[Rfam]
RNA sequence: GGCGAUAAACUGCGGCGUUCAAUAGGCGCAGCGGACCCGGGGGCAGUACCCGGCGGCUCCACCAGAAACCGCGGCUUCGCGGGUCCUGACGGGGCCGAACCAGGAUCGACGUGUGUUGAAAAGCGCUGUUUUCGCCCGGAAUGGGACCACCGCAACGGCCCAUAACACAAGUGCCAACGACAACGAGGCGCUCGCUCUUGCUGCGUAA
Numbered sequence: 001g002g003c004g005a006u007a008a009a010c011u012g013c014g015g016c017g018u019u020c021a022a023u024a025g026g027c028g029c030a031g032c033g034g035a036c037c038c039g040g041g042g043g044c045a046g047u048a049c050c051c052g053g054c055g056g057c058u059c060c061a062c063c064a065g066a067a068a069c070c071g072c073g074g075c076u077u078c079g080c081g082g083g084u085c086c087u088g089a090c091g092g093g094g095c096c097g098a099a100c101c102a103g104g105a106u107c108g109a110c111g112u113g114u115g116u117u118g119a120a121a122a123g124c125g126c127u128g129u130u131u132u133c134g135c136c137c138g139g140a141a142u143g144g145g146a147c148c149a150c151c152g153c154a155a156c157g158g159c160c161c162a163u164a165a166c167a168c169a170a171g172u173g174c175c176a177a178c179g180a181c182a183a184c185g186a187g188g189c190g191c192u193c194g195c196u197c198u199u200g201c202u203g204c205g206u207a208a
Stems, first nucleotide, its partner, number of pairs: 001136005015126004027115003031112003037053005054097007137152003

A member of the RNA family "permuted transfer-messenger RNA" from Sphingomonas changnyeongensis, 208 nucleotides long.
Pairs were carried over by alignment from the consensus structure, which is taken from published work.
The family's RNA type in Rfam is non-coding RNA gene.
About the family: Bacterial tmRNA, also known as 10Sa RNA or SsrA, is named for its dual tRNA and mRNA-like properties.
Gene Ontology term of the family: RNA catabolic process.